[Rfam]
RNA sequence: AUCGCUUCUCGGCCUUUUAGCUAAGAUCAAGUGUAGUAUCUGUUCUUAUCAAUUUAAUAUCUGACAUGUCCUCUGUCUGAGGACAAUAUAUUAAAUGGAUUUUUGGAGCGGGGAGUCAGAAUAGGGGUUGGCUCCAUCCACUCCAUGCAUCGACCUGGUUUUGCAGUACUUCCAGGAACGGUGCACCCCUU
Numbered sequence: 001a002u003c004g005c006u007u008c009u010c011g012g013c014c015u016u017u018u019a020g021c022u023a024a025g026a027u028c029a030a031g032u033g034u035a036g037u038a039u040c041u042g043u044u045c046u047u048a049u050c051a052a053u054u055u056a057a058u059a060u061c062u063g064a065c066a067u068g069u070c071c072u073c074u075g076u077c078u079g080a081g082g083a084c085a086a087u088a089u090a091u092u093a094a095a096u097g098g099a100u101u102u103u104u105g106g107a108g109c110g111g112g113g114a115g116u117c118a119g120a121a122u123a124g125g126g127g128u129u130g131g132c133u134c135c136a137u138c139c140a141c142u143c144c145a146u147g148c149a150u151c152g153a154c155c156u157g158g159u160u161u162u163g164c165a166g167u168a169c170u171u172c173c174a175g176g177a178a179c180g181g182u183g184c185a186c187c188c189c190u191u
Stems, first nucleotide, its partner, number of pairs: 007026003011022003047066001049064003068084006112144005119137001124135004147184006154176005
RNA: U2 spliceosomal RNA